[Rfam]
RNA sequence: GGGUGCAAGUUUGAGGCCAUAGCAGAAGCACUCACAGCGCAGCCCAGUCAGUCCAAUGAAUCUGUGAGUUUUGCU
Numbered sequence: 001g002g003g004u005g006c007a008a009g010u011u012u013g014a015g016g017c018c019a020u021a022g023c024a025g026a027a028g029c030a031c032u033c034a035c036a037g038c039g040c041a042g043c044c045c046a047g048u049c050a051g052u053c054c055a056a057u058g059a060a061u062c063u064g065u066g067a068g069u070u071u072u073g074c075u
Stems, first nucleotide, its partner, number of pairs: 013045001015044003021075007028040002049064003052059002